Shown here is a 97-nucleotide RNA sequence from Canis lupus, a member of the family "mir-8813 microRNA precursor family". The organism belongs to Canis lupus, within Eukaryota. The family has 2 seed sequences and 307 matches in Rfam 15.1. Gene Ontology terms of the family: miRNA-mediated post-transcriptional gene silencing and RISC complex.

RNA sequence: UGGUGACCUGAGGUUCUCUGGCUGUCACUCUGUCCUAGCCCAUUCUGGCCCGCGGGGCACAGCAUGAGUCCCAGUAUAGUCUGUGGGGUCCUGACCC
Numbered sequence: 001u002g003g004u005g006a007c008c009u010g011a012g013g014u015u016c017u018c019u020g021g022c023u024g025u026c027a028c029u030c031u032g033u034c035c036u037a038g039c040c041c042a043u044u045c046u047g048g049c050c051c052g053c054g055g056g057g058c059a060c061a062g063c064a065u066g067a068g069u070c071c072c073a074g075u076a077u078a079g080u081c082u083g084u085g086g087g088g089u090c091c092u093g094a095c096c097c
Stems, first nucleotide, its partner, number of pairs: 002096003005090005011082005021075004027069004031064003038058004